[Rfam]
RNA sequence: GAUUGUUGCGAUUAAGGUUGUAACAACAUGACUUGGAUUAAUUCAAGAGAGCUUAAUUCCUUCACUUGGGCAACAGGUGUAAACACAUAAAUAAUG
Numbered sequence: 001g002a003u004u005g006u007u008g009c010g011a012u013u014a015a016g017g018u019u020g021u022a023a024c025a026a027c028a029u030g031a032c033u034u035g036g037a038u039u040a041a042u043u044c045a046a047g048a049g050a051g052c053u054u055a056a057u058u059c060c061u062u063c064a065c066u067u068g069g070g071c072a073a074c075a076g077g078u079g080u081a082a083a084c085a086c087a088u089a090a091a092u093a094a095u096g
Stems, first nucleotide, its partner, number of pairs: 003026010063079006
This 96-nucleotide sequence belongs to the Rfam family "RT-9 RNA". The family's RNA type in Rfam is small RNA.